[Rfam]
Rfam assigns this 69-nucleotide RNA sequence from Weizmannia acidilactici to the family "Listeria sRNA sbrA". It scores 76 bits against the family's covariance model. It is annotated as a small RNA. Pairs were carried over by alignment from the consensus structure, which was predicted with WAR. NCBI's taxonomy places the organism under Bacteria, Bacilli, Caryophanales, Bacillaceae, Heyndrickxia. For this family Rfam cites "The Listeria transcriptional landscape from saprophytism to virulence" (Toledo-Arana et al., Nature, 2009).
RNA sequence: GUACAUCUAGAUCCAUACCCCUAAACUCCCUAGAUGCUUUGGAUAGCGGUUUCUCGCUGUCCCUUUUUA
Numbered sequence: 001g002u003a004c005a006u007c008u009a010g011a012u013c014c015a016u017a018c019c020c021c022u023a024a025a026c027u028c029c030c031u032a033g034a035u036g037c038u039u040u041g042g043a044u045a046g047c048g049g050u051u052u053c054u055c056g057c058u059g060u061c062c063c064u065u066u067u068u069a
Base pairs, nucleotide, nucleotide: 004036005035006034007033008032009031041062042061043060044059045058046057047056048055